[Rfam]
RNA sequence: CGGUUGGGAGAGCUGCAUGAUUGCGGUUCGUCGGGGUCAUCCCCGCCCGGCCGC
Numbered sequence: 001c002g003g004u005u006g007g008g009a010g011a012g013c014u015g016c017a018u019g020a021u022u023g024c025g026g027u028u029c030g031u032c033g034g035g036g037u038c039a040u041c042c043c044c045g046c047c048c049g050g051c052c053g054c
Stems, first nucleotide, its partner, number of pairs: 001053003005049004010029007032045005
RNA: DUF3800-VI RNA